[Rfam]
RNA sequence: GCCUGUUACUUGUUAACUGACACGGGCGUUGAGGUAACUCUACGCCCGUGUGUGCGUGUCAAGGGUAAACAAAACAAU
Numbered sequence: 001g002c003c004u005g006u007u008a009c010u011u012g013u014u015a016a017c018u019g020a021c022a023c024g025g026g027c028g029u030u031g032a033g034g035u036a037a038c039u040c041u042a043c044g045c046c047c048g049u050g051u052g053u054g055c056g057u058g059u060c061a062a063g064g065g066u067a068a069a070c071a072a073a074a075c076a077a078u
Stems, first nucleotide, its partner, number of pairs: 003019001005017001020051009031040003
This 78-nucleotide sequence from Xenorhabdus bovienii belongs to the Rfam family "tpke11". Rfam links the family to the GO term response to temperature stimulus. The literature on the family includes a 2016 paper in Proc Natl Acad Sci U S A by Righetti et al., "Temperature-responsive in vitro RNA structurome of Yersinia pseudotuberculosis". In Yersinia located in ICR upstream dnaJ (chaperone)gene. Has temperature responsive RNA structure. Rfam classes the family as a small RNA.